[Rfam]
RNA: Small nucleolar RNA SNORA72
RNA sequence: AUGCGAAUUAUUCUCGCCUGCUGGAUCCAUCAAUGGUCUAAUCAGGGCUAGACAUUCGCUAGAUUAAAAAAAAAACCUUCAGUGUCCACAGAACUGGUUUUGUGCCUGUUUUGUUUAUUUUUCUGCUGGUGACAGUU
Numbered sequence: 001a002u003g004c005g006a007a008u009u010a011u012u013c014u015c016g017c018c019u020g021c022u023g024g025a026u027c028c029a030u031c032a033a034u035g036g037u038c039u040a041a042u043c044a045g046g047g048c049u050a051g052a053c054a055u056u057c058g059c060u061a062g063a064u065u066a067a068a069a070a071a072a073a074a075a076c077c078u079u080c081a082g083u084g085u086c087c088a089c090a091g092a093a094c095u096g097g098u099u100u101u102g103u104g105c106c107u108g109u110u111u112u113g114u115u116u117a118u119u120u121u122u123c124u125g126c127u128g129g130u131g132a133c134a135g136u137u
Stems, first nucleotide, its partner, number of pairs: 003059003017046004022040006070130001073127001076125001088114007096106002